[Rfam]
Nucleotides: 131
Base pairs, nucleotide, nucleotide: 001056002055003054004053005052006051014043015042016041017040018039019038020036022034023033024032068122069121070120071119072118073117076113077112078111079110081108084106085105
Number, partner (000 for none) and nucleotide at each position: 001056g002055c003054a004053g005052a006051c007000u008000c009000a010000c011000u012000c013000u014043g015042u016041g017040c018039c019038u020036g021000a022034c023033u024032g025000c026000a027000a028000u029000a030000u031000u032024c033023a034022g035000c036020c037000a038019a039018g040017g041016u042015g043014c044000u045000u046000u047000u048000u049000a050000g051006g052005u053004c054003u055002g056001c057000u058000a059000g060000a061000g062000u063000a064000a065000u066000g067000a068122u069121c070120a071119a072118g073117g074000a075000u076113g077112u078111u079110g080000u081108g082000a083000a084106c085105a086000u087000a088000u089000c090000c091000c092000u093000g094000u095000u096000g097000u098000g099000g100000g101000a102000c103000u104000c105085u106084g107000u108081u109000u110079c111078a112077a113076u114000u115000g116000g117073u118072c119071u120070u121069g122068g123000c124000a125000c126000a127000c128000c129000a130000u131000g